Shown here is a 35-nucleotide RNA from Sporocytophaga myxococcoides, a member of the family "DUF805b RNA". The organism belongs to Sporocytophaga, within Bacteria. It is annotated as a cis-regulatory element. A search with the family's covariance model found it, with a score of 40 bits.
RNA sequence: AAGGAGGAGGCUGAAAAUCCGCAAUAGAGUAGGCA
Numbered sequence: 001a002a003g004g005a006g007g008a009g010g011c012u013g014a015a016a017a018u019c020c021g022c023a024a025u026a027g028a029g030u031a032g033g034c035a
Stems, first nucleotide, its partner, number of pairs: 003020003010034003